RNA sequence: UGGGUUAGAACUCGACUCAACCCGGCAUCGCAACGAUGUUCGGUAGAGGCUCGCCACGCCGGCAGCGGGCUUCGUUGGCAGUCUAUCUGCCGACCUCCCUAGGAGGUCAUAAAGGAACACCAGUCAAC
Numbered sequence: 001u002g003g004g005u006u007a008g009a010a011c012u013c014g015a016c017u018c019a020a021c022c023c024g025g026c027a028u029c030g031c032a033a034c035g036a037u038g039u040u041c042g043g044u045a046g047a048g049g050c051u052c053g054c055c056a057c058g059c060c061g062g063c064a065g066c067g068g069g070c071u072u073c074g075u076u077g078g079c080a081g082u083c084u085a086u087c088u089g090c091c092g093a094c095c096u097c098c099c100u101a102g103g104a105g106g107u108c109a110u111a112a113a114g115g116a117a118c119a120c121c122a123g124u125c126a127a128c
Base pairs, nucleotide, nucleotide: 021043022042024040025039026038027037028036029035048071049070050069051068052067053066054065077091078090079089080088081087092108093107094106095105096104097103
RNA: rmf RNA
Organism: Stutzerimonas stutzeri